[Rfam]
RNA sequence: CAGCGCGUCAAAGUGGUAGUGAUUUGUUGUGAUCGAUCUCAUAUCACAGCCAGCUUUGAUGUGCUGUG
Numbered sequence: 001c002a003g004c005g006c007g008u009c010a011a012a013g014u015g016g017u018a019g020u021g022a023u024u025u026g027u028u029g030u031g032a033u034c035g036a037u038c039u040c041a042u043a044u045c046a047c048a049g050c051c052a053g054c055u056u057u058g059a060u061g062u063g064c065u066g067u068g
Stems, first nucleotide, its partner, number of pairs: 005062009014052004019047004025043003
RNA: mir-2 microRNA precursor family
Organism: Anisakis simplex